[Rfam]
RNA: MicC RNA
RNA sequence: CGUGUUAUAUGCCUUUAUUGUCACGUUUAUUUUUCGUUGACGUAUUGAUAGCUAUUAUUAAUUAGCCAGCGAAUAAAUUGACAAGCCCGAACAACCCGUUCGGGCUUUUUUUUGGGUUCCA
Numbered sequence: 001c002g003u004g005u006u007a008u009a010u011g012c013c014u015u016u017a018u019u020g021u022c023a024c025g026u027u028u029a030u031u032u033u034u035c036g037u038u039g040a041c042g043u044a045u046u047g048a049u050a051g052c053u054a055u056u057a058u059u060a061a062u063u064a065g066c067c068a069g070c071g072a073a074u075a076a077a078u079u080g081a082c083a084a085g086c087c088c089g090a091a092c093a094a095c096c097c098g099u100u101c102g103g104g105c106u107u108u109u110u111u112u113u114g115g116g117u118u119c120c121a
Stems, first nucleotide, its partner, number of pairs: 007021003010017002036070004041065001080109002083107010